[Rfam]
RNA sequence: GACAUUCGGGGCACGCACUCCUCCUCCCAGCGUUGUCCCGUACAGACCGGCGAGACUCCUUCUCCCAUUUGCCGGUCAUUCAUAUGACGCCCACCGGACCUCCUCCCCCGGUGGGCGUUAUUU
Dot-bracket structure: ......(((.((((((.............))).))).)))....((((((((((.............)))))))))).........(((((((((((..........))))))))))).....